The record is a 142-nucleotide RNA sequence, which matches "poplar-1 RNA" in Rfam. It is one of the family's seed sequences.
[Rfam]
RNA sequence: UUUGAGCCGAGGGGCCUUGCGGAAACGACAGGUUGGCGCUAAUCGGAAACGAUAGCAAGUGAGCCCGCAUCAUACCGAAAUCUGAACUGCGGCGUGAUGAGAUACUGUGCCUAUCGCAAGAGGCACGUCAGAUAGUAGCAAA
Numbered sequence: 001u002u003u004g005a006g007c008c009g010a011g012g013g014g015c016c017u018u019g020c021g022g023a024a025a026c027g028a029c030a031g032g033u034u035g036g037c038g039c040u041a042a043u044c045g046g047a048a049a050c051g052a053u054a055g056c057a058a059g060u061g062a063g064c065c066c067g068c069a070u071c072a073u074a075c076c077g078a079a080a081u082c083u084g085a086a087c088u089g090c091g092g093c094g095u096g097a098u099g100a101g102a103u104a105c106u107g108u109g110c111c112u113a114u115c116g117c118a119a120g121a122g123g124c125a126c127g128u129c130a131g132a133u134a135g136u137a138g139c140a141a142a
Stems, first nucleotide, its partner, number of pairs: 012066004018057003031044005068099002071096003075092001082131004103137004108125005